[Rfam]
RNA sequence: GAGAUCAAAGAAUAACACCGUGUUUUUGUUAAAAUUAUUAUCUUGUCAAUCACGUUUUUGACGCGAUAUCACGCUUAAACCCAAAACCGCAAUCAAUUCAACAGCCAUACUGGAGAACAUGAUGAGCAAGAAGAAAGGAUUAACCACCGCG
Numbered sequence: 001g002a003g004a005u006c007a008a009a010g011a012a013u014a015a016c017a018c019c020g021u022g023u024u025u026u027u028g029u030u031a032a033a034a035u036u037a038u039u040a041u042c043u044u045g046u047c048a049a050u051c052a053c054g055u056u057u058u059u060g061a062c063g064c065g066a067u068a069u070c071a072c073g074c075u076u077a078a079a080c081c082c083a084a085a086a087c088c089g090c091a092a093u094c095a096a097u098u099c100a101a102c103a104g105c106c107a108u109a110c111u112g113g114a115g116a117a118c119a120u121g122a123u124g125a126g127c128a129a130g131a132a133g134a135a136a137g138g139a140u141u142a143a144c145c146a147c148c149g150c151g
Base pairs, nucleotide, nucleotide: 010099011098012097013096020090021089022088024086025085026084027083028082029078030077031076032075039068040067041066042065044063045062046061047060048059049058104127105126106124107123108122111119112118137145138144
RNA: KatA 5' UTR thermometer
Organism: Yersinia pseudotuberculosis